A member of the RNA family "mir-27 microRNA precursor family" from Aegithalos caudatus, 77 nucleotides long. The organism belongs to Aegithalos, within Eukaryota. The family's consensus secondary structure was predicted with RNAalifold. On this family, see Yao et al., J Virol 2008: "MicroRNA profile of Marek's disease virus-transformed T-cell line MSB-1: predominance of virus-encoded microRNAs".

RNA sequence: CCGGGGGGUAGGGCUUAGCCCACCUGUGAACAGAGUCCAGCGCGCCGUGUUCACAGUGGCUAAGUUCCGCCUCCUGC
Numbered sequence: 001c002c003g004g005g006g007g008g009u010a011g012g013g014c015u016u017a018g019c020c021c022a023c024c025u026g027u028g029a030a031c032a033g034a035g036u037c038c039a040g041c042g043c044g045c046c047g048u049g050u051u052c053a054c055a056g057u058g059g060c061u062a063a064g065u066u067c068c069g070c071c072u073c074c075u076g077c
Stems, first nucleotide, its partner, number of pairs: 011067010026054007